[Rfam]
RNA sequence: UGGUACAGGGGGUUAGACCACUGUGCAAUCGGAGUUCUGGGAAUCAGGUGAUGGAGUGUGUUCUAAGAAGGAACUGAGACCC
Numbered sequence: 001u002g003g004u005a006c007a008g009g010g011g012g013u014u015a016g017a018c019c020a021c022u023g024u025g026c027a028a029u030c031g032g033a034g035u036u037c038u039g040g041g042a043a044u045c046a047g048g049u050g051a052u053g054g055a056g057u058g059u060g061u062u063c064u065a066a067g068a069a070g071g072a073a074c075u076g077a078g079a080c081c082c
Stems, first nucleotide, its partner, number of pairs: 002081003037047004
Overview
A member of the RNA family "small Cajal body-specific RNA 18" from Erinaceus europaeus, 82 nucleotides long. Pairs were carried over by alignment from the consensus structure, which was predicted with PFOLD. A search with the family's covariance model found it, with a score of 68 bits. Its family is annotated with RNA processing, nucleolus and Cajal body in the Gene Ontology.